RNA sequence: AGAGGUUUAAGUUCAAGGCCAAAGCAGAAGCACUCGUGGCACGGCCUGUCAGAUUCUAACAAAUCUGUGAAUUCUGCU
Numbered sequence: 001a002g003a004g005g006u007u008u009a010a011g012u013u014c015a016a017g018g019c020c021a022a023a024g025c026a027g028a029a030g031c032a033c034u035c036g037u038g039g040c041a042c043g044g045c046c047u048g049u050c051a052g053a054u055u056c057u058a059a060c061a062a063a064u065c066u067g068u069g070a071a072u073u074c075u076g077c078u
Stems, first nucleotide, its partner, number of pairs: 017046004023078007030042001050067006
Overview: The family of this 78-nucleotide RNA from Alligator sinensis is "Mammalian CPEB3 ribozyme". The base pairs follow the family's consensus structure, which is taken from published work. It scores 48 bits against the family's covariance model. The organism belongs to Alligator, within Eukaryota. About the family: The mammalian CPEB3 ribozyme is a self cleaving RNA located in the second intron of the CPEB3 gene which belongs to a family of genes regulating messenger RNA polyadenylation. This ribozyme is highly conserved and found only in mammals. The CPEB3 ribozyme is structurally and biochemically related to the human hepatitis delta virus (HDV) ribozyme and the HDV ribozyme is proposed to have arisen from the human transcriptome. There is currently only one other known self cleaving ribozyme in mammals, the CoTC motif. Gene Ontology term of the family: RNA nuclease activity.